[Rfam]
RNA sequence: CAGGAGUUGGUCAAUGCGAUUACUCCCCAGAUGGAAUAUCGCAAUACCAAUGAUGA
Numbered sequence: 001c002a003g004g005a006g007u008u009g010g011u012c013a014a015u016g017c018g019a020u021u022a023c024u025c026c027c028c029a030g031a032u033g034g035a036a037u038a039u040c041g042c043a044a045u046a047c048c049a050a051u052g053a054u055g056a
Stems, first nucleotide, its partner, number of pairs: 006051006017041004024035003
Transposase-1 RNA: a 56-nucleotide RNA. By type it is a small RNA.